This 62-nucleotide RNA from Rhodovastum atsumiense belongs to the Rfam family "Fluoride riboswitch aptamer (crcB RNA motif)". A search with the family's covariance model found it, with a score of 54 bits.

RNA sequence: CGGCCCGAUGGGGAUGGAGUCCCCCGAAACCGCCCGCGAGGGCUGAUGACUCCUGCCGCGUG
Numbered sequence: 001c002g003g004c005c006c007g008a009u010g011g012g013g014a015u016g017g018a019g020u021c022c023c024c025c026g027a028a029a030c031c032g033c034c035c036g037c038g039a040g041g042g043c044u045g046a047u048g049a050c051u052c053c054u055g056c057c058g059c060g061u062g
Base pairs, nucleotide, nucleotide: 010025011024012023013022016053017052018051019050020049021048032043033042034041035040